[Rfam]
RNA sequence: UCAUCACCACCAUCACCCAGUUUAGUCUUUCGGGCGAGGUACGCGUAUCCGGGAGACGAGCUCCCGGCGGUUAAAUCAGAGAUACAAAAGAUUUAAACCCUUGGGAGCCCAGCCCCAAGGGUUUUUUCGU
Numbered sequence: 001u002c003a004u005c006a007c008c009a010c011c012a013u014c015a016c017c018c019a020g021u022u023u024a025g026u027c028u029u030u031c032g033g034g035c036g037a038g039g040u041a042c043g044c045g046u047a048u049c050c051g052g053g054a055g056a057c058g059a060g061c062u063c064c065c066g067g068c069g070g071u072u073a074a075a076u077c078a079g080a081g082a083u084a085c086a087a088a089a090g091a092u093u094u095a096a097a098c099c100c101u102u103g104g105g106a107g108c109c110c111a112g113c114c115c116c117a118a119g120g121g122u123u124u125u126u127u128c129g130u
Stems, first nucleotide, its partner, number of pairs: 009046002011039001013037002017034002020031001048067002051065005095124011107113001